[Rfam]
RNA sequence: UUGAAUAUUCUGCUUCGAGAUUAUACGGCUAAGGGUGACUAUGCCGGAUAACCCUGAGUUUUACUCACAGGGCAGUGCUGGAAACGGUGCUGCCUCCCAUAACGCGGGGAUGCCCGCGCGGAAAGAAGCCUGUAGGUUGUUUUG
Numbered sequence: 001u002u003g004a005a006u007a008u009u010c011u012g013c014u015u016c017g018a019g020a021u022u023a024u025a026c027g028g029c030u031a032a033g034g035g036u037g038a039c040u041a042u043g044c045c046g047g048a049u050a051a052c053c054c055u056g057a058g059u060u061u062u063a064c065u066c067a068c069a070g071g072g073c074a075g076u077g078c079u080g081g082a083a084a085c086g087g088u089g090c091u092g093c094c095u096c097c098c099a100u101a102a103c104g105c106g107g108g109g110a111u112g113c114c115c116g117c118g119c120g121g122a123a124a125g126a127a128g129c130c131u132g133u134a135g136g137u138u139g140u141u142u143u144g
Base pairs, nucleotide, nucleotide: 003138004137006135012129013128014127015126016125019053021051022050023049024048026046027045028044029043033040034039055067056066057065058064059063070095071094072093073092074091075090076089077088078087079086080085096121097120
Molybdenum/Tungsten riboswitch aptamer (Moco RNA motif): a 144-nucleotide RNA from Sporobacter termitidis. The literature on the family includes a 2008 paper in Mol Microbiol by Regulski et al., "in molybdenum cofactor and tungsten cofactor metabolism".